RNA sequence: AGAAGUUACAAAACACUUAUUCCCGAUAGGAUUCACAUCAGGUGAAAAUGCCUUGUAACCAAAAUAAUAUGAACAAUUGGGGGAAAUUUAUACCAUG
Numbered sequence: 001a002g003a004a005g006u007u008a009c010a011a012a013a014c015a016c017u018u019a020u021u022c023c024c025g026a027u028a029g030g031a032u033u034c035a036c037a038u039c040a041g042g043u044g045a046a047a048a049u050g051c052c053u054u055g056u057a058a059c060c061a062a063a064a065u066a067a068u069a070u071g072a073a074c075a076a077u078u079g080g081g082g083g084a085a086a087u088u089u090a091u092a093c094c095a096u097g
Stems, first nucleotide, its partner, number of pairs: 020085005028053003032046005059080004

The family of this 97-nucleotide sequence from Ligilactobacillus ceti is "SAM-III riboswitch aptamer (SMK box)". Rfam links the family to the GO terms regulation of translational initiation and methionine adenosyltransferase activity. NCBI's taxonomy places the organism under Bacteria, Bacillati, Bacilli, Lactobacillaceae, Ligilactobacillus ceti.